c-di-GMP-I riboswitch aptamer: a 76-nucleotide sequence from Clostridium tetani. The family's consensus secondary structure is taken from published work.

[Rfam]
RNA sequence: CCACGAUAAAGGCAAAACUAUUGAAAGAUAGUGACGCAAAGCUAUAGGGUCUGUAAAAUGACAGCCAGUUAUCGAA
Numbered sequence: 001c002c003a004c005g006a007u008a009a010a011g012g013c014a015a016a017a018c019u020a021u022u023g024a025a026a027g028a029u030a031g032u033g034a035c036g037c038a039a040a041g042c043u044a045u046a047g048g049g050u051c052u053g054u055a056a057a058a059u060g061a062c063a064g065c066c067a068g069u070u071a072u073c074g075a076a
Stems, first nucleotide, its partner, number of pairs: 012037002017032006040070004047066002049062003
Dot-bracket structure: ...........((...((((((....))))))...))..((((...(((((........)))..))))))......
About the family: GEMM was predicted in a large-scale screen for bacterial structured RNA regulatory elements.